[Rfam]
RNA: c-di-AMP riboswitch aptamer (ydaO/yuaA leader)
RNA sequence: AGUCUUAUUAUGCCGAAUUCCAUUUGGAAGCGGAGGACCCAUUUUUGGGGUGAAUCUGGACUUUAGGUUUAUUAUUUUGAUCUAAGGUCUGGUAGGGUUACUCUUUCAACCCGAAUCCGACAGCUAACUUCGUAGGCAUUGAAAGAGGAAGA
Dot-bracket structure: ..........((((...(((......)))((((((....((....))(((.....((((((((((((((.........))))))))))))))..((((..........))))...))).........)))))).))))..............
Numbered sequence: 001a002g003u004c005u006u007a008u009u010a011u012g013c014c015g016a017a018u019u020c021c022a023u024u025u026g027g028a029a030g031c032g033g034a035g036g037a038c039c040c041a042u043u044u045u046u047g048g049g050g051u052g053a054a055u056c057u058g059g060a061c062u063u064u065a066g067g068u069u070u071a072u073u074a075u076u077u078u079g080a081u082c083u084a085a086g087g088u089c090u091g092g093u094a095g096g097g098u099u100a101c102u103c104u105u106u107c108a109a110c111c112c113g114a115a116u117c118c119g120a121c122a123g124c125u126a127a128c129u130u131c132g133u134a135g136g137c138a139u140u141g142a143a144a145g146a147g148g149a150a151g152a
Stems, first nucleotide, its partner, number of pairs: 011138004018029003030133006040047002048118003056092014095112004